[Rfam]
RNA sequence: GUUGCUUCUUACUGGUGAACUCCCUUAAAAUUAAUUAAUGAGGGAUGUUCAUGUUUCCGAAGCAUAAACCAAUUCUUUUCUGUAGCCAGUAUUAAACAGCAAUGUGCAUACUUAUCUUAUUGCACUUUGUUACCUGUCUCCUGGUACAUUU
Numbered sequence: 001g002u003u004g005c006u007u008c009u010u011a012c013u014g015g016u017g018a019a020c021u022c023c024c025u026u027a028a029a030a031u032u033a034a035u036u037a038a039u040g041a042g043g044g045a046u047g048u049u050c051a052u053g054u055u056u057c058c059g060a061a062g063c064a065u066a067a068a069c070c071a072a073u074u075c076u077u078u079u080c081u082g083u084a085g086c087c088a089g090u091a092u093u094a095a096a097c098a099g100c101a102a103u104g105u106g107c108a109u110a111c112u113u114a115u116c117u118u119a120u121u122g123c124a125c126u127u128u129g130u131u132a133c134c135u136g137u138c139u140c141c142u143g144g145u146a147c148a149u150u151u
Stems, first nucleotide, its partner, number of pairs: 003064006016051005021045005085145005091139001098131003102127001104125003
RNA: small nucleolar RNA snoR137